[Rfam]
A member of the RNA family "drz-agam-2-2 ribozyme" from Anopheles stephensi, 195 nucleotides long. A search with the family's covariance model found it, with a score of 126 bits. Pairs were carried over by alignment from the consensus structure, which is taken from published work.

RNA sequence: UCUUGACAUUGCUCUGUUAAUGGGGUAGGAUCUGAGACUCCUUUCGAGGUUACACAGGCUCGCCUACCCAACUCCUAUUCCGUCACGUCCUCGUCGUAUAGAGUGGUAACUUUCCCCACCACAUAUCCAAGCAAGGGUACACGGGCCUGUCCCAACCCCUUGGGCGGAUGGUGGAGCAAGGCUAAACAGGAGGGG
Numbered sequence: 001u002c003u004u005g006a007c008a009u010u011g012c013u014c015u016g017u018u019a020a021u022g023g024g025g026u027a028g029g030a031u032c033u034g035a036g037a038c039u040c041c042u043u044u045c046g047a048g049g050u051u052a053c054a055c056a057g058g059c060u061c062g063c064c065u066a067c068c069c070a071a072c073u074c075c076u077a078u079u080c081c082g083u084c085a086c087g088u089c090c091u092c093g094u095c096g097u098a099u100a101g102a103g104u105g106g107u108a109a110c111u112u113u114c115c116c117c118a119c120c121a122c123a124u125a126u127c128c129a130a131g132c133a134a135g136g137g138u139a140c141a142c143g144g145g146c147c148u149g150u151c152c153c154a155a156c157c158c159c160u161u162g163g164g165c166g167g168a169u170g171g172u173g174g175a176g177c178a179a180g181g182c183u184a185a186a187c188a189g190g191a192g193g194g195g
Base pairs, nucleotide, nucleotide: 011104012103013102014101015100016099017098023069024068025067026066027065028064029063032058033057073195074194075193076192078191079190081189085097086096087095089106090105110180111179112178114176117173118172119171120170125169126168127167128166135153136152137151157164158163